[Rfam]
RNA sequence: GGAUGUGAGGGCGAUCUGGUUGCGACAUCUGUCACCCCAUUGAUCGCCAGGGUUGAUUCGGCUGAUCUGGCUGGCUAGGCGGGUGUCCCCUUCCUCCCUCACCGCUCCAUGUGCGUCCCUCCCGAAGCUGCGCGCUCGGUCGAAGAGGACAACCAUCCCCGCUAGAGGAGGACCGGUCUUCGGUCAAGGGUAUACGAGUAGCUGCGCUCCCCUGCUAGAACCUCCAAACAAGCUCUCAAGAAAAUCUAAGGAAACGUUUCAUGCAAUAAGUAGACUGAUUAGAAAAUCCUUCAGCCACAAACAGUGAAAAUGCUUGCU
Numbered sequence: 001g002g003a004u005g006u007g008a009g010g011g012c013g014a015u016c017u018g019g020u021u022g023c024g025a026c027a028u029c030u031g032u033c034a035c036c037c038c039a040u041u042g043a044u045c046g047c048c049a050g051g052g053u054u055g056a057u058u059c060g061g062c063u064g065a066u067c068u069g070g071c072u073g074g075c076u077a078g079g080c081g082g083g084u085g086u087c088c089c090c091u092u093c094c095u096c097c098c099u100c101a102c103c104g105c106u107c108c109a110u111g112u113g114c115g116u117c118c119c120u121c122c123c124g125a126a127g128c129u130g131c132g133c134g135c136u137c138g139g140u141c142g143a144a145g146a147g148g149a150c151a152a153c154c155a156u157c158c159c160c161g162c163u164a165g166a167g168g169a170g171g172a173c174c175g176g177u178c179u180u181c182g183g184u185c186a187a188g189g190g191u192a193u194a195c196g197a198g199u200a201g202c203u204g205c206g207c208u209c210c211c212c213u214g215c216u217a218g219a220a221c222c223u224c225c226a227a228a229c230a231a232g233c234u235c236u237c238a239a240g241a242a243a244a245u246c247u248a249a250g251g252a253a254a255c256g257u258u259u260c261a262u263g264c265a266a267u268a269a270g271u272a273g274a275c276u277g278a279u280u281a282g283a284a285a286a287u288c289c290u291u292c293a294g295c296c297a298c299a300a301a302c303a304g305u306g307a308a309a310a311u312g313c314u315u316g317c318u
Base pairs, nucleotide, nucleotide: 001108002107003106005102006101007100008099009098010097011096013093014092018090019089024087025086026085027084028083029082030081031080032079033078035074036073037070038069039068042067043066044065045064046062047061048060116171117170118168119167120166121165122139123138124137125136127135128134141161142160147158148157149156201280203278208274212273213272214271215270223265225263
Rfam assigns this 318-nucleotide RNA from Bison bison to the family "7SK RNA".
It scores 273 bits against the family's covariance model.
From the family's description: 7SK was discovered as an abundant small nuclear RNA in the mid-70s but a possible function has only recently been suggested. Two independent studies have found that 7SK RNA binds the CDK9/cyclin T complex (known as elongation factor P-TEFb).